[Rfam]
The family of this 96-nucleotide RNA is "DUF1874 RNA". Rfam's curators put it in the seed alignment.
RNA sequence: GUCAGACCUGCGAGGAGAAGGUCAUCCAGAGGUAAGAGUUCCCAUAGGGAACCGCCUUCUCCUGCCGCCAAUUGGCGGUCUUGCAGGUCAGGAGGU
Numbered sequence: 001g002u003c004a005g006a007c008c009u010g011c012g013a014g015g016a017g018a019a020g021g022u023c024a025u026c027c028a029g030a031g032g033u034a035a036g037a038g039u040u041c042c043c044a045u046a047g048g049g050a051a052c053c054g055c056c057u058u059c060u061c062c063u064g065c066c067g068c069c070a071a072u073u074g075g076c077g078g079u080c081u082u083g084c085a086g087g088u089c090a091g092g093a094g095g096u
Base pairs, nucleotide, nucleotide: 005089006088007087008086009085010084011083012082013081014062015061016060017059018058019057020056021055022054036053038052039051040050041049042048064079065078066077067076068075